[Rfam]
RNA sequence: GUCAUGGGGAUCGCGAUCUCCCCACGAGGCGUCAGCUGAAGAAUCGUGUCCCAGAUUUCGACGAGGACACGCCAUG
Numbered sequence: 001g002u003c004a005u006g007g008g009g010a011u012c013g014c015g016a017u018c019u020c021c022c023c024a025c026g027a028g029g030c031g032u033c034a035g036c037u038g039a040a041g042a043a044u045c046g047u048g049u050c051c052c053a054g055a056u057u058u059c060g061a062c063g064a065g066g067a068c069a070c071g072c073c074a075u076g
Stems, first nucleotide, its partner, number of pairs: 005024006046070006

A member of the RNA family "chrB-a RNA" from Sphingomonas aerophila, 76 nucleotides long. Lineage of the source: Bacteria > Alphaproteobacteria > Sphingomonadales > Sphingomonadaceae > Sphingomonas.